[Rfam]
RNA sequence: CGCCUAAACCCUCCGGGGCAUGGCAGAAAAACGCAACGAGCACAAAGAACCCGUCAUCGGGGUCGCUCGUUGCGUCAUAUAGGGAAACCUGUAUGUGAGCCGAAAGGCUC
Numbered sequence: 001c002g003c004c005u006a007a008a009c010c011c012u013c014c015g016g017g018g019c020a021u022g023g024c025a026g027a028a029a030a031a032c033g034c035a036a037c038g039a040g041c042a043c044a045a046a047g048a049a050c051c052c053g054u055c056a057u058c059g060g061g062g063u064c065g066c067u068c069g070u071u072g073c074g075u076c077a078u079a080u081a082g083g084g085a086a087a088c089c090u091g092u093a094u095g096u097g098a099g100c101c102g103a104a105a106g107g108c109u110c
Base pairs, nucleotide, nucleotide: 002024003023004022009018010017011016032074033073034072035071036070037069038068039067040066041065047064048063050061051060052059076095077094078093079092080091081090082089083088097110098109099108100107101106
LOOT RNA: a 110-nucleotide RNA. It is annotated as a small RNA.